Rfam assigns this 77-nucleotide RNA from Vombatus ursinus to the family "let-7 microRNA precursor family".
RNA sequence: CUGGGCUGAGGUAGUAGGUUGUACAGUUGAGAGAGACACCUGUGGAGAUAACUGUACGGCUCACUAGCUUUCCCCAG
Numbered sequence: 001c002u003g004g005g006c007u008g009a010g011g012u013a014g015u016a017g018g019u020u021g022u023a024c025a026g027u028u029g030a031g032a033g034a035g036a037c038a039c040c041u042g043u044g045g046a047g048a049u050a051a052c053u054g055u056a057c058g059g060c061u062c063a064c065u066a067g068c069u070u071u072c073c074c075c076a077g
Stems, first nucleotide, its partner, number of pairs: 001077005008070003012066004017061011040047002
Rfam describes the family as follows. This family represents the microRNAs (miRNA) let-7 and mir-98. let-7 was identified from a study of developmental timing in C. elegans, and was later shown to be part of a much larger class of non-coding RNAs termed miRNAs. Clan: let-7 microRNA precursor clan. The match comes from Rfam's covariance-model search (60 bits). Lineage of the source: Eukaryota > Deuterostomia > Gnathostomata > Theria > Vombatus. Rfam links the family to the GO terms RISC complex and miRNA-mediated post-transcriptional gene silencing. For this family Rfam cites "Cryo-EM Structure of Human Dicer and Its Complexes with a Pre-miRNA Substrate" (Liu et al., Cell, 2018).